Source information:
The record is a 56-nucleotide sequence from Corynebacterium lowii, which matches "L31-Corynebacteriaceae ribosomal protein leader" in Rfam. NCBI's taxonomy places the organism under Bacteria, Actinomycetes, Mycobacteriales, Corynebacteriaceae, Corynebacterium. A search with the family's covariance model found it, with a score of 49 bits. The family's RNA type in Rfam is cis-regulatory leader. Pairs were carried over by alignment from the consensus structure, which is taken from published work.
[Rfam]
RNA sequence: ACCUGGGCACGAUCCUCGGUGAGCGGGGAACCGACCCAGUGUACAAACCUUAGGAA
Numbered sequence: 001a002c003c004u005g006g007g008c009a010c011g012a013u014c015c016u017c018g019g020u021g022a023g024c025g026g027g028g029a030a031c032c033g034a035c036c037c038a039g040u041g042u043a044c045a046a047a048c049c050u051u052a053g054g055a056a
Base pairs, nucleotide, nucleotide: 001040002039004038005037006036007035013029014028015027016026017025018024